[Rfam]
RNA sequence: GAAGACCGUCCCGCACGGAUGGACUCCAGCCCGCAAGUGGAGGCUCCGAUCUCCCACCUGGCGGCCCCUGGGGCCGCGGGUCAACGGUCAGGCUGCGCCCCGCGGAGUUCCGCGGCGGUGCUCCCGGUCUGUGAGGAGCCCCGCCUGUGACCCGUCCGGGGCGUUUUUU
Numbered sequence: 001g002a003a004g005a006c007c008g009u010c011c012c013g014c015a016c017g018g019a020u021g022g023a024c025u026c027c028a029g030c031c032c033g034c035a036a037g038u039g040g041a042g043g044c045u046c047c048g049a050u051c052u053c054c055c056a057c058c059u060g061g062c063g064g065c066c067c068c069u070g071g072g073g074c075c076g077c078g079g080g081u082c083a084a085c086g087g088u089c090a091g092g093c094u095g096c097g098c099c100c101c102g103c104g105g106a107g108u109u110c111c112g113c114g115g116c117g118g119u120g121c122u123c124c125c126g127g128u129c130u131g132u133g134a135g136g137a138g139c140c141c142c143g144c145c146u147g148u149g150a151c152c153c154g155u156c157c158g159g160g161g162c163g164u165u166u167u168u169u
Stems, first nucleotide, its partner, number of pairs: 004089006013026001029081004034060002037057004041052002061077007097162006103154003111149003114145005120139005
The record is a 169-nucleotide RNA from Streptomyces albus, which matches "Streptomyces RNA 1601" in Rfam.
By type it is a small RNA.
Rfam describes the family as follows. Identified by deep sequencing of transcriptome at the end of exponential growth phase. Appears longer on northern blot than sequencing transcript. Streptomyces specific.
The organism belongs to Streptomyces, within Bacteria.